[Rfam]
The record is a 210-nucleotide RNA from Dictyostelium discoideum, which matches "ACEA small nucleolar RNA U3" in Rfam. Its family is annotated with nucleolus and RNA processing in the Gene Ontology. Pairs were carried over by alignment from the consensus structure, which is taken from published work. Rfam classes the family as a C/D-box small nucleolar RNA. Rfam 15.1 lists 2,156 matches to the family in 132 species. Small nucleolar RNAs (snoRNAs) are involved in the processing and modification of rRNA in the nucleolus. There are two main classes of snoRNAs: the box C/D class, and the box H/ACA class. U3 snoRNA is a member of the box C/D class. Indeed, the box C/D element is a subset of the six short sequence elements found in all U3 snoRNAs, namely boxes A, A', B, C, C', and D. The U3 snoRNA secondary structure is characterised by a small 5' domain (with boxes A and A'), and a larger 3' domain (with boxes B, C, C', and D), the two domains being linked by a single-stranded hinge. Boxes B and C form the B/C motif, which appears to be exclusive to U3 snoRNAs, and boxes C' and D form the C'/D motif. The latter is functionally similar to the C/D motifs found in other snoRNAs. The 5' domain and the hinge region act as a pre-rRNA-binding domain. The 3' domain has conserved protein-binding sites. Both the box B/C and box C'/D motifs are sufficient for nuclear retention of U3 snoRNA. The box C'/D motif is also necessary for nucleolar localisation, stability and hyper-methylation of U3 snoRNA. Both box B/C and C'/D motifs are involved in specific protein interactions and are necessary for the rRNA processing functions of U3 snoRNA. The source organism's lineage runs through Eukaryota, Evosea, Eumycetozoa, Dictyosteliaceae and Dictyostelium.
RNA sequence: AUGACCAAACUCUUAGGAUCAUUUCUAGAGUAUCGUCUAUUAAAAUUAUUCAUCAAUAAUUUUUCCUCUUUCACAGCUAGGAUGAUGAUACACACUCACUAUACGAAAGCGUGAAACCGUUAUUAUCAAAUGAUUCAUUUAUUUGUUAUUAACAUUGAUGACCGUCUAAUUCAGGGAUGAAUUGGUUGUAUGGUGGGAUUCGUACUGGCU
Numbered sequence: 001a002u003g004a005c006c007a008a009a010c011u012c013u014u015a016g017g018a019u020c021a022u023u024u025c026u027a028g029a030g031u032a033u034c035g036u037c038u039a040u041u042a043a044a045a046u047u048a049u050u051c052a053u054c055a056a057u058a059a060u061u062u063u064u065c066c067u068c069u070u071u072c073a074c075a076g077c078u079a080g081g082a083u084g085a086u087g088a089u090a091c092a093c094a095c096u097c098a099c100u101a102u103a104c105g106a107a108a109g110c111g112u113g114a115a116a117c118c119g120u121u122a123u124u125a126u127c128a129a130a131u132g133a134u135u136c137a138u139u140u141a142u143u144u145g146u147u148a149u150u151a152a153c154a155u156u157g158a159u160g161a162c163c164g165u166c167u168a169a170u171u172c173a174g175g176g177a178u179g180a181a182u183u184g185g186u187u188g189u190a191u192g193g194u195g196g197g198a199u200u201c202g203u204a205c206u207g208g209c210u
Base pairs, nucleotide, nucleotide: 003037005035009031010030011029015026016025017024018023042063043062044061045060046059047058048057049056050055076209077208078207079206080205096196097195098194099193100192102190103189104188105187106186109165110164111163119153120152121151123148166185167184168183169182171180